The family of this 99-nucleotide RNA from Gemmiger sp. An194 is "Bacterial small signal recognition particle RNA". About the family: The signal recognition particle (SRP) is a universally conserved ribonucleoprotein involved in the co-translational targeting of proteins to membranes. Pairs were carried over by alignment from the consensus structure, which is taken from published work. On this family, see Rosenblad et al., Nucleic Acids Res 2003: "SRPDB: Signal Recognition Particle Database". By type it is a non-coding RNA gene. It scores 64 bits against the family's covariance model.
[Rfam]
RNA sequence: AUGCGGGCCCUGUGCGAUGGGGCCCCAUGAACCAUGUCAGGCGGGGAACCGAGCAGCAUUAAGUGGUCUGCCCUGUGCGCCGCAGGCAGCCUGCAUCCG
Numbered sequence: 001a002u003g004c005g006g007g008c009c010c011u012g013u014g015c016g017a018u019g020g021g022g023c024c025c026c027a028u029g030a031a032c033c034a035u036g037u038c039a040g041g042c043g044g045g046g047a048a049c050c051g052a053g054c055a056g057c058a059u060u061a062a063g064u065g066g067u068c069u070g071c072c073c074u075g076u077g078c079g080c081c082g083c084a085g086g087c088a089g090c091c092u093g094c095a096u097c098c099g
Stems, first nucleotide, its partner, number of pairs: 004093005009086006015077001017076006025066004034059004042051003